RNA sequence: GCAGACUCACUCUGUUUAAGACUGAAAUAACCAGCCUUAGACUUUUUCUGUCUGCUAAAGGAACAUGGCGAAUGUUGCAAAAUACCUCCCCAGUCUUCUGGGAGGUGCAUGUGCCUUCACCAACAUUUAA
Numbered sequence: 001g002c003a004g005a006c007u008c009a010c011u012c013u014g015u016u017u018a019a020g021a022c023u024g025a026a027a028u029a030a031c032c033a034g035c036c037u038u039a040g041a042c043u044u045u046u047u048c049u050g051u052c053u054g055c056u057a058a059a060g061g062a063a064c065a066u067g068g069c070g071a072a073u074g075u076u077g078c079a080a081a082a083u084a085c086c087u088c089c090c091c092a093g094u095c096u097u098c099u100g101g102g103a104g105g106u107g108c109a110u111g112u113g114c115c116u117u118c119a120c121c122a123a124c125a126u127u128u129a130a
Base pairs, nucleotide, nucleotide: 001055002054003053004052005051006050014042015041016040017039018038019037020036022034023033024032067121068120070118071117072116074115076113077112078111079110083107084106085105086104087103088102089101